Small nucleolar RNA snoR99: an 87-nucleotide RNA sequence from Dichanthelium oligosanthes.
By type it is an H/ACA-box small nucleolar RNA.
Its family is annotated with RNA processing and nucleolus in the Gene Ontology.
The family's consensus secondary structure was predicted with WAR.

RNA sequence: GUGCCUGUGGGAUGACAUGCGCAUCCAUUUUAUUCACUUAAUAAGCUGAUGUUAUGUUCUUAGCUGAUCAUUAAGGAUGGGAAAUUU
Numbered sequence: 001g002u003g004c005c006u007g008u009g010g011g012a013u014g015a016c017a018u019g020c021g022c023a024u025c026c027a028u029u030u031u032a033u034u035c036a037c038u039u040a041a042u043a044a045g046c047u048g049a050u051g052u053u054a055u056g057u058u059c060u061u062a063g064c065u066g067a068u069c070a071u072u073a074a075g076g077a078u079g080g081g082a083a084a085u086u087u
Base pairs, nucleotide, nucleotide: 024081025080026079027078028077029076041068042067044065045064046063047062048061